[Rfam]
RNA: epsC RNA
RNA sequence: UGGUAAUGCCUCCUCACCACUAUCAAUGGAGGCACUCGGCCAUGCUGUGGGCCACAGCAGACCUUAGACGCGAGUCGUCGAGAGUAUGGCGUGAGGGAGGGUUGGAUGCCCU
Numbered sequence: 001u002g003g004u005a006a007u008g009c010c011u012c013c014u015c016a017c018c019a020c021u022a023u024c025a026a027u028g029g030a031g032g033c034a035c036u037c038g039g040c041c042a043u044g045c046u047g048u049g050g051g052c053c054a055c056a057g058c059a060g061a062c063c064u065u066a067g068a069c070g071c072g073a074g075u076c077g078u079c080g081a082g083a084g085u086a087u088g089g090c091g092u093g094a095g096g097g098a099g100g101g102u103u104g105g106a107u108g109c110c111c112u
Base pairs, nucleotide, nucleotide: 001019002018003017004016007034008033009032010031011030012029013028035095036094037093038092039090040089041088042087043086044085045084046083049064050063051062053060067079068078069077070076098112099111100110101109102108